[Rfam]
Staphylococcus sRNA71 small RNA: a 106-nucleotide RNA sequence from Staphylococcus haemolyticus. The sequence is in the family's curated seed alignment. sRNA71 is a Bacterial small RNA discovered by RNA-seq analysis of the multiresistant Staphylococcus aureus strain ST239 grown in the presence of antibiotics and found throughout the Staphylococcus genus. It is thought to be a trans-encoded small RNA expressed in diverse conditions and media. The 5' position is uncertain, this record adds 12 bases to the initial sRNA71 sequence to include additional conserved nucleotides. Gene Ontology term of the family: mRNA binding. The family's consensus secondary structure was predicted with LocARNA.
RNA sequence: AACAUGAUAGUAUUAGGGUGUAGUUAAUUAAUAACUACAAAGUCUUUUAUAUUCAUGAACAUAAUACUCCUGGGUGACGCCUUAACCCGACGUCACCCUCUUUUUA
Numbered sequence: 001a002a003c004a005u006g007a008u009a010g011u012a013u014u015a016g017g018g019u020g021u022a023g024u025u026a027a028u029u030a031a032u033a034a035c036u037a038c039a040a041a042g043u044c045u046u047u048u049a050u051a052u053u054c055a056u057g058a059a060c061a062u063a064a065u066a067c068u069c070c071u072g073g074g075u076g077a078c079g080c081c082u083u084a085a086c087c088c089g090a091c092g093u094c095a096c097c098c099u100c101u102u103u104u105u106a
Stems, first nucleotide, its partner, number of pairs: 003057005010052004015047004019039008072098008